[Rfam]
RNA sequence: GUCGACCGGUCGGUCAUUCACGUGCCCGACCCACAAGUGGAGGCUCCGCACUCCCACCUCGCUGGCUUCCGGUCGGCAGGUCUCCGGUCAGACGGUCCCCAUCGUUCCGUACGGACGAUGGAGCCGUCCGAGAUGCGCCCCGCGGCUCACCGUGGUGGUGCUCCGGUUGUCAGGAGCCCCGCCUGUGUCCCGUCCGGGGCCUUUUUC
Numbered sequence: 001g002u003c004g005a006c007c008g009g010u011c012g013g014u015c016a017u018u019c020a021c022g023u024g025c026c027c028g029a030c031c032c033a034c035a036a037g038u039g040g041a042g043g044c045u046c047c048g049c050a051c052u053c054c055c056a057c058c059u060c061g062c063u064g065g066c067u068u069c070c071g072g073u074c075g076g077c078a079g080g081u082c083u084c085c086g087g088u089c090a091g092a093c094g095g096u097c098c099c100c101a102u103c104g105u106u107c108c109g110u111a112c113g114g115a116c117g118a119u120g121g122a123g124c125c126g127u128c129c130g131a132g133a134u135g136c137g138c139c140c141c142g143c144g145g146c147u148c149a150c151c152g153u154g155g156u157g158g159u160g161c162u163c164c165g166g167u168u169g170u171c172a173g174g175a176g177c178c179c180c181g182c183c184u185g186u187g188u189c190c191c192g193u194c195c196g197g198g199g200c201c202u203u204u205u206u207c
Stems, first nucleotide, its partner, number of pairs: 004089006012027002028082004035059001037057004041052002061077007091128005099121008137200006143192003151187003154183005160177005
This 207-nucleotide RNA from Streptomyces caatingaensis belongs to the Rfam family "Streptomyces RNA 1601". The source organism's lineage runs through Bacteria, Bacillati, Actinomycetota, Kitasatosporales and Streptomyces. Rfam describes the family as follows. Identified by deep sequencing of transcriptome at the end of exponential growth phase. Appears longer on northern blot than sequencing transcript. Streptomyces specific. A reference for the family is Vockenhuber et al. (2011), "Deep sequencing-based identification of small non-coding RNAs in Streptomyces coelicolor", RNA Biol. The family's RNA type in Rfam is small RNA.